Rhodo-rpoB RNA: a 92-nucleotide sequence from Palleronia aestuarii.
RNA sequence: GUUUCGGGAGACGUGCUGUGGGAUGCGCGUCGCGUAUUGAAAUGGCCCUGCCGUCAGGAGGCGUUCGUCCGGUUACCCCGACCGUGUCGAGC
Numbered sequence: 001g002u003u004u005c006g007g008g009a010g011a012c013g014u015g016c017u018g019u020g021g022g023a024u025g026c027g028c029g030u031c032g033c034g035u036a037u038u039g040a041a042a043u044g045g046c047c048c049u050g051c052c053g054u055c056a057g058g059a060g061g062c063g064u065u066c067g068u069c070c071g072g073u074u075a076c077c078c079c080g081a082c083c084g085u086g087u088c089g090a091g092c
Stems, first nucleotide, its partner, number of pairs: 001043005010031007063092005068086001070084003